[Rfam]
RNA: mir-1 microRNA precursor family
Organism: Bagarius yarrelli
RNA sequence: UUUGAGAUAACAUACUUCCUUAUAUCCCCAUAUACUGCAUUCAGCUAUGGAAUGUAAGGAAGUGUGUGGUUUCAGA
Numbered sequence: 001u002u003u004g005a006g007a008u009a010a011c012a013u014a015c016u017u018c019c020u021u022a023u024a025u026c027c028c029c030a031u032a033u034a035c036u037g038c039a040u041u042c043a044g045c046u047a048u049g050g051a052a053u054g055u056a057a058g059g060a061a062g063u064g065u066g067u068g069g070u071u072u073c074a075g076a
Stems, first nucleotide, its partner, number of pairs: 007070002010067016028050005